[Rfam]
RNA sequence: GUAUACGAGAUUAGCUAAAGUACUCGUAUAUGGAUUGGACGUCAACAAAUUUUUAAUUGGCAAGUCAGGGAACCUUCCCCUCAGCGAAGGCCGAAAAGAGGCUAGCCAUGCCCUUAGUAGGACUAGCCAAAGGAGGGGACUAGCGGUAGCAGUGAGUUCAUUGGAUGGCCGAACCCCUGAGUACAGGGGAGUCGUCAAUGGUUCGACACUCCAUCAGCUGAGGAGUCUCGAGAUGCCAUGUGGACGAGGGCAUGCCCACGGCACAUCUUAACCUAUGCGGGGGUUGCAUGGGUGAAAGCGCCAUUCGUGGCGUUAUGGACACAGCCUGAUAGGGUGUAGCAGAAGCCUGCUAUUCCGCUAGUAAAAACUCUGCUGUACAUGGCAC
Dot-bracket structure: (((((((((.............))))))))).............................................((((((.((...((((...(((.(((.......))))))....)).)).)).....))))))((((((((((((((((.((((((.(((((((((..((((((....))))))..(((((.(((((((((.(((((.........))))).))))...)))))...)))))(((....))).)))).)))))..((((((((((...)))))))))).....(((((....)))))..)))))).))((((....)))).[[[[[[[...)))))))..)))))))......]]]]]]]..........
Shown here is a 385-nucleotide RNA from Orthopestivirus tauri, a member of the family "Pestivirus internal ribosome entry site (IRES) including 5'UTR SLI". It is one of the family's seed sequences. About the family: This family represents the internal ribosome entry site (IRES) of the the pestiviruses. The pestivirus IRES allows cap and end-independent translation of mRNA in the host cell. The source organism's lineage runs through Viruses, Kitrinoviricota, Pestiviridae, Orthopestivirus and Orthopestivirus tauri.